Description: The family of this 84-nucleotide sequence from Aotus nancymaae is "mir-548 microRNA precursor family". Rfam links the family to the GO terms miRNA-mediated post-transcriptional gene silencing and RISC complex. A search with the family's covariance model found it, with a score of 94 bits. NCBI's taxonomy places the organism under Eukaryota, Deuterostomia, Simiiformes, Aotidae, Aotus. The literature on the family includes a 2010 paper in BMC Biol by Witten et al., "Ultra-high throughput sequencing-based small RNA discovery and discrete statistical biomarker analysis in a collection of cervical tumours and matched controls". The base pairs follow the family's consensus structure, which was predicted with WAR.

RNA sequence: UAUUAGGUUGGUACAAAAGUCAUUGCGGUUUUUGCCAUUGAAAGUAGCGGCAAAAACCGCAAUGACUUUUGCACCAGCCUAAUA
Number, nucleotide and partner (000 for none) at each position: 001u084002a083003u082004u081005a080006g079007g078008u077009u076010g075011g074012u073013a000014c071015a070016a069017a068018a067019g066020u065021c064022a063023u062024u061025g060026c059027g058028g057029u056030u055031u054032u053033u052034g051035c050036c049037a000038u047039u046040g045041a000042a000043a000044g000045u040046a039047g038048c000049g036050g035051c034052a033053a032054a031055a030056a029057c028058c027059g026060c025061a024062a023063u022064g021065a020066c019067u018068u017069u016070u015071g014072c000073a012074c011075c010076a009077g008078c007079c006080u005081a004082a003083u002084a001